Shown here is a 107-nucleotide sequence from Comamonas sp. 26, a member of the family "SAH (S-adenosyl-L-homocysteine) riboswitch aptamer". Rfam 15.1 lists 1,354 matches to the family in 1,132 species.
RNA sequence: CGCCCCGAGGAGCGCUGCAGCUUGUCAUCUUCAUGCAUGACCUGUCAGGCUCGGGGCCGCAGAUCCUGCAUGCGAUCUGCCCGUAUGUGCAACGGCGCUCACCUGUU
Dot-bracket structure: .(((((((............(..(((((........)))))..)......)))))))..................................................